[Rfam]
RNA: Histidine operon leader
Organism: Neptunicella marina
RNA sequence: ACAUCAUCACCAUCAUAUAGCAUAACCUUUCAGGUUCGUGCUGGAAGGUCUGUAGCCACCUUCCAGAGGAACAGUUUUAUAACUAAACCCCCGGUAGGUGACUACCGGGGGUUUUUUAUU
Numbered sequence: 001a002c003a004u005c006a007u008c009a010c011c012a013u014c015a016u017a018u019a020g021c022a023u024a025a026c027c028u029u030u031c032a033g034g035u036u037c038g039u040g041c042u043g044g045a046a047g048g049u050c051u052g053u054a055g056c057c058a059c060c061u062u063c064c065a066g067a068g069g070a071a072c073a074g075u076u077u078u079a080u081a082a083c084u085a086a087a088c089c090c091c092c093g094g095u096a097g098g099u100g101a102c103u104a105c106c107g108g109g110g111g112u113u114u115u116u117u118a119u120u
Stems, first nucleotide, its partner, number of pairs: 008040003012035003020031001041066008082117001085114013